[Rfam]
A member of the RNA family "Trypanosomatid snoRNA TB11Cs4H2" from Leishmania braziliensis, 65 nucleotides long. Gene Ontology terms of the family: nucleolus and RNA processing. For this family Rfam cites "A genome-wide analysis of C/D and H/ACA-like small nucleolar RNAs in Trypanosoma brucei reveals a trypanosome-specific pattern of rRNA modification" (Liang et al., RNA, 2005).
RNA sequence: AAGGAGUGCAUUGAGUCCUACCGCUCCCCCACUACUGAGCGCGUGGGAGCAUCAACUCUCCGAGA
Numbered sequence: 001a002a003g004g005a006g007u008g009c010a011u012u013g014a015g016u017c018c019u020a021c022c023g024c025u026c027c028c029c030c031a032c033u034a035c036u037g038a039g040c041g042c043g044u045g046g047g048a049g050c051a052u053c054a055a056c057u058c059u060c061c062g063a064g065a
Base pairs, nucleotide, nucleotide: 003061004060005059006058008056016048017047018046019045020044021043022041023040024039025038026037